Source information
The family of this 88-nucleotide RNA from Pelodiscus sinensis is "mir-7 microRNA precursor family". The base pairs follow the family's consensus structure, which was predicted with PFOLD. Rfam links the family to the GO terms miRNA-mediated post-transcriptional gene silencing and RISC complex. Lineage of the source: Eukaryota > Craniata > Euteleostomi > Cryptodira > Pelodiscus. This family represents the microRNA (miRNA) precursor mir-7. Rfam 15.1 lists 2,589 matches to the family in 797 species. A search with the family's covariance model found it, with a score of 78 bits.
RNA sequence: UGGUCUGGCUCUGUGUGGAAGACUAGUGAUUUUGUUGUUCUGACAUAAAAGUGACAACAAAUCAUAGCCUGCCAUACAGCACGGACCC
Numbered sequence: 001u002g003g004u005c006u007g008g009c010u011c012u013g014u015g016u017g018g019a020a021g022a023c024u025a026g027u028g029a030u031u032u033u034g035u036u037g038u039u040c041u042g043a044c045a046u047a048a049a050a051g052u053g054a055c056a057a058c059a060a061a062u063c064a065u066a067g068c069c070u071g072c073c074a075u076a077c078a079g080c081a082c083g084g085a086c087c088c
Stems, first nucleotide, its partner, number of pairs: 002087005008082001011079008020070002023067002026065007034058006